[Rfam]
RNA sequence: CCUGAUCAUAUGAUGAAAUAUUUCGGAUGUAAAUUCACAGACCUGUUCCGAAAAGCGCAAAAACCAUGUGGAUAUUUCCGUUGCCUUCCUUCUGACAAGAUCAU
Numbered sequence: 001c002c003u004g005a006u007c008a009u010a011u012g013a014u015g016a017a018a019u020a021u022u023u024c025g026g027a028u029g030u031a032a033a034u035u036c037a038c039a040g041a042c043c044u045g046u047u048c049c050g051a052a053a054a055g056c057g058c059a060a061a062a063a064c065c066a067u068g069u070g071g072a073u074a075u076u077u078c079c080g081u082u083g084c085c086u087u088c089c090u091u092c093u094g095a096c097a098a099g100a101u102c103a104u
Stems, first nucleotide, its partner, number of pairs: 003103003024080004

The record is a 104-nucleotide RNA sequence from Paecilomyces variotii, which matches "Small nucleolar RNA Z13/snr52" in Rfam. A search with the family's covariance model found it, with a score of 101 bits. Rfam links the family to the GO terms nucleolus and RNA processing. Rfam classes the family as a C/D-box small nucleolar RNA.